This 261-nucleotide RNA sequence from Stercorarius parasiticus belongs to the Rfam family "Small Cajal body specific RNA 6". The family has 17 seed sequences and 1,309 matches in Rfam 15.1.

[Rfam]
RNA sequence: GGUCUGUGAUGAAUAGUAAAAGGUCUGAUUAUCCAAAGACUUGUACUUCCGUGACCGUUUCUCCCAGCAGUUUCUCACCAGUCAUGGCACAGUAAUGGUGUGGCCGGCAGUGUUUGCUGGCAGCUUGUGAUGUGUUCAGUUCAUGUUAGCCUGAAGUAUUGGAGACGUGACUGGGAUCAGCAUCCGACAGCCUUACUUGAAGGAGUUUGGGGUCUUGGAUUGUUAUAACUGUACAUGUGAUCUGACUUUUCUGCUGAGACC
Numbered sequence: 001g002g003u004c005u006g007u008g009a010u011g012a013a014u015a016g017u018a019a020a021a022g023g024u025c026u027g028a029u030u031a032u033c034c035a036a037a038g039a040c041u042u043g044u045a046c047u048u049c050c051g052u053g054a055c056c057g058u059u060u061c062u063c064c065c066a067g068c069a070g071u072u073u074c075u076c077a078c079c080a081g082u083c084a085u086g087g088c089a090c091a092g093u094a095a096u097g098g099u100g101u102g103g104c105c106g107g108c109a110g111u112g113u114u115u116g117c118u119g120g121c122a123g124c125u126u127g128u129g130a131u132g133u134g135u136u137c138a139g140u141u142c143a144u145g146u147u148a149g150c151c152u153g154a155a156g157u158a159u160u161g162g163a164g165a166c167g168u169g170a171c172u173g174g175g176a177u178c179a180g181c182a183u184c185c186g187a188c189a190g191c192c193u194u195a196c197u198u199g200a201a202g203g204a205g206u207u208u209g210g211g212g213u214c215u216u217g218g219a220u221u222g223u224u225a226u227a228a229c230u231g232u233a234c235a236u237g238u239g240a241u242c243u244g245a246c247u248u249u250u251c252u253g254c255u256g257a258g259a260c261c
Base pairs, nucleotide, nucleotide: 001261002260003259004258037243038242039241041239048219049218050217051216053214054213061205062204063203064202065119066118067117068116069115070114078107079106081104082103083102084101085100086099127185129184130183131182132181133180142169143168144167145166146165147164150162151161

It is annotated as a small Cajal body RNA.
A reference for the family is Darzacq et al. (2002), "Cajal body-specific small nuclear RNAs: a novel class of 2'-O-methylation and pseudouridylation guide RNAs", EMBO J.
Gene Ontology terms of the family: RNA processing and nucleolus.
The match comes from Rfam's covariance-model search (100 bits).